[Rfam]
Nucleotides: 137
Stems, first nucleotide, its partner, number of pairs: 002060004018046006025038003073129005078123001085114003089109002
Number, partner (000 for none) and nucleotide at each position: 001000u002060g003059c004058a005057g006000c007000c008000u009000u010000g011000u012000c013000a014000a015000a016000u017000u018046c019045g020044g021043u022042g023041c024000u025038u026037c027036c028000u029000c030000c031000a032000c033000a034000a035000u036027g037026g038025a039000c040000u041023g042022c043021a044020c045019u046018g047000g048000c049000c050000a051000a052000a053000a054000u055000g056000g057005c058004u059003g060002c061000c062000a063000c064000a065000g066000u067000g068000a069000a070000c071000c072000u073129g074128u075127a076126g077125u078123u079000c080000a081000u082000g083000g084000g085114c086113c087112c088000c089109a090108c091000a092000u093000c094000c095000c096000u097000u098000u099000u100000g101000c102000a103000u104000g105000g106000g107000u108090g109089u110000a111000c112087g113086g114085g115000a116000u117000a118000g119000a120000u121000u122000u123078g124000u125077a126076c127075u128074a129073c130000a131000g132000a133000c134000a135000a136000u137000u